[Rfam]
RNA sequence: CCUGACCCGCAAGCCGGAGGCCGAAGAGGUGCCGGUGCAGGUCAACAUCCAGUACGUGGUCGAAUUCUACGCCCGCUGAUUCGGGCCCACUUCUGUAUCACAUACAGUCAAGGACAUACCGCCGAAACCCCGUGUUCCCGGAAGGGACGCGGGGUUUCCGCGUU
Numbered sequence: 001c002c003u004g005a006c007c008c009g010c011a012a013g014c015c016g017g018a019g020g021c022c023g024a025a026g027a028g029g030u031g032c033c034g035g036u037g038c039a040g041g042u043c044a045a046c047a048u049c050c051a052g053u054a055c056g057u058g059g060u061c062g063a064a065u066u067c068u069a070c071g072c073c074c075g076c077u078g079a080u081u082c083g084g085g086c087c088c089a090c091u092u093c094u095g096u097a098u099c100a101c102a103u104a105c106a107g108u109c110a111a112g113g114a115c116a117u118a119c120c121g122c123c124g125a126a127a128c129c130c131c132g133u134g135u136u137c138c139c140g141g142a143a144g145g146g147a148c149g150c151g152g153g154g155u156u157u158c159c160g161c162g163u164u
Base pairs, nucleotide, nucleotide: 007020008019010017033078034077035055036054037053038052040050041048042047056076057075058074059073061071062070083120084119121161122160124158125157126156127155128154129153130152131151132150133149134148135147136146137145138144
About this RNA: The record is a 164-nucleotide RNA sequence from Bifidobacterium stellenboschense, which matches "sbcD RNA" in Rfam.